[Rfam]
RNA sequence: AAAGGAGCAAUACCAAAUUUCUUGUUCUAUCAAGAGAUUUGGUAUUGCUCCUUUAUUU
Numbered sequence: 001a002a003a004g005g006a007g008c009a010a011u012a013c014c015a016a017a018u019u020u021c022u023u024g025u026u027c028u029a030u031c032a033a034g035a036g037a038u039u040u041g042g043u044a045u046u047g048c049u050c051c052u053u054u055a056u057u058u
Stems, first nucleotide, its partner, number of pairs: 001054014019036006
The family of this 58-nucleotide RNA from Penthorum chinense is "Plastid-psbA-3 3UTR RNA". The family is grouped with related families in Rfam's "Plastid-psbA 3UTR RNA clan". Rfam's curators put it in the seed alignment. The family's consensus secondary structure was predicted with LocARNA. Taxonomically the source falls in Penthorum (Eukaryota, Magnoliopsida, eudicotyledons, Penthoraceae). Plastid psbA-3 is a non-coding RNA (ncRNA) present in plastids. It was identified in inverted repeat sequences in the 3 prime untranslate region (3UTR) of photosystem II quinone-binding protein (psbA). On this family, see Richter et al., Plant Commun 2023: "Retrograde signaling in plants: A critical review focusing on the GUN pathway and beyond".